[Rfam]
RNA sequence: CAGGACCCCUCGCAUGGCGUCAUCCUGUGAACCUCCCCAGGGCCGGAAGGCAGCAAGGAUAAGCGGGCUCUGGCGGGUGUGCGAGGGGUCUUUUCG
Numbered sequence: 001c002a003g004g005a006c007c008c009c010u011c012g013c014a015u016g017g018c019g020u021c022a023u024c025c026u027g028u029g030a031a032c033c034u035c036c037c038c039a040g041g042g043c044c045g046g047a048a049g050g051c052a053g054c055a056a057g058g059a060u061a062a063g064c065g066g067g068c069u070c071u072g073g074c075g076g077g078u079g080u081g082c083g084a085g086g087g088g089u090c091u092u093u094u095c096g
Stems, first nucleotide, its partner, number of pairs: 004090011015077001018075005024067005034059003042051003

A member of the RNA family "Bacterial small signal recognition particle RNA" from Sphaerisporangium rubeum, 96 nucleotides long. Lineage of the source: Bacteria > Bacillati > Actinomycetota > Actinomycetes > Sphaerisporangium. Clan: SRP clan. The match comes from Rfam's covariance-model search (71 bits). On this family, see Rosenblad et al., RNA Biol 2009: "Kinship in the SRP RNA family". Rfam describes the family as follows. The signal recognition particle (SRP) is a universally conserved ribonucleoprotein involved in the co-translational targeting of proteins to membranes. The base pairs follow the family's consensus structure, which is taken from published work. By type it is a non-coding RNA gene.